[Rfam]
Nucleotides: 169
Stems, first nucleotide, its partner, number of pairs: 001016006031167002036162001041156006049147003064144003074136003078132001080130005085113004091106003
Number, partner (000 for none) and nucleotide at each position: 001016u002015a003014a004013u005012c006011g007000g008000c009000g010000a011006c012005g013004g014003u015002u016001a017000u018000g019000u020000c021000u022000g023000a024000a025000g026000g027000a028000a029000g030000c031167u032166g033000a034000a035000g036162g037000g038000g039000g040000a041156a042155c043154a044153u045152g046151g047000a048000a049147c050146a051145u052000a053000g054000c055000g056000a057000g058000a059000g060000c061000g062000a063000a064144c065143c066142g067000a068000g069000g070000g071000u072000u073000g074136g075135c076134u077000u078132a079000u080130g081129g082128a083127g084126u085113g086112g087111g088110u089000a090000a091106c092105c093104c094000u095000g096000c097000a098000c099000a100000a101000a102000g103000u104093g105092g106091g107000a108000a109000a110088g111087c112086c113085c114000a115000a116000a117000a118000g119000u120000u121000g122000g123000a124000u125000a126084a127083c128082u129081c130080c131000u132078u133000a134076a135075g136074u137000u138000u139000g140000g141000a142066c143065g144064g145051a146050u147049g148000g149000g150000u151046u152045c153044a154043u155042g156041u157000u158000c159000g160000g161000g162036c163000a164000g165000g166032c167031a168000a169000a
Group II catalytic intron D1-D4-3: a 169-nucleotide RNA sequence from Fonticella tunisiensis. The match comes from Rfam's covariance-model search (58 bits). The organism belongs to Fonticella, within Bacteria. The pairing is the family consensus, mapped onto this sequence.